[Rfam]
The record is a 106-nucleotide RNA sequence from Peribacillus psychrosaccharolyticus, which matches "SAM riboswitch aptamer (S box leader)" in Rfam. It scores 88 bits against the family's covariance model. Taxonomically the source falls in Peribacillus (Bacteria, Bacillati, Bacilli, Bacillaceae). Rfam links the family to the GO term regulation of gene expression. The base pairs follow the family's consensus structure, which is taken from published work.
RNA sequence: UUCUUAUCAAGAGAAGCUGAGGGACUGGCCCUAUGAAGCUUCAGCAACCUAUGCUCUCGAGCAAGCAGGUGCUAAAUCCAGCAAGCAGUGUCUUGAGAGAUAAGAG
Number, nucleotide and partner (000 for none) at each position: 001u106002u105003c104004u103005u102006a101007u100008c099009a000010a000011g000012a000013g042014a041015a040016g039017c038018u000019g000020a000021g031022g030023g029024a000025c081026u080027g079028g078029c023030c022031c021032u000033a000034u000035g000036a000037a000038g017039c016040u015041u014042c013043a073044g072045c071046a070047a000048c069049c068050u065051a000052u063053g062054c000055u000056c000057u000058c000059g000060a000061g000062c053063a052064a000065g050066c000067a000068g049069g048070u046071g045072c044073u043074a000075a000076a000077u098078c028079c027080a026081g025082c095083a094084a093085g092086c000087a000088g000089u000090g000091u000092c085093u084094u083095g082096a000097g000098a077099g008100a007101u006102a005103a004104g003105a002106g001